[Rfam]
RNA sequence: UCUUGGGACACCUCUCCCCAACGAGAGGCAUCUAUCUGGAAGGUUAGCAGAU
Dot-bracket structure: ..........((((((......))))))...(((.((....)).))).....
RNA: serC leader
Organism: Rhodobacteraceae bacterium PD-2